RNA: Selenocysteine insertion sequence 1
RNA sequence: CCGGCACCCAUGACGGUCUGCCUGAAAACCAGUCGUUGGUGGGGCAGACCCGAGAACCCGGCGUG
Numbered sequence: 001c002c003g004g005c006a007c008c009c010a011u012g013a014c015g016g017u018c019u020g021c022c023u024g025a026a027a028a029c030c031a032g033u034c035g036u037u038g039g040u041g042g043g044g045c046a047g048a049c050c051c052g053a054g055a056a057c058c059c060g061g062c063g064u065g
Stems, first nucleotide, its partner, number of pairs: 001065001004062002015050009029039003